[Rfam]
The record is a 36-nucleotide RNA sequence from Flavobacterium hercynium, which matches "DUF805b RNA" in Rfam.
Nucleotides: 036
Base pairs, nucleotide, nucleotide: 002021003020004019005018010035011034012033
Number, partner (000 for none) and nucleotide at each position: 001000a002021a003020g004019g005018u006000g007000g008000u009000a010035u011034c012033u013000g014000a015000a016000a017000a018005a019004c020003c021002u022000u023000u024000a025000a026000a027000a028000g029000a030000g031000u032000a033012g034011g035010a036000u
About this RNA
Pairs were carried over by alignment from the consensus structure, which is taken from published work.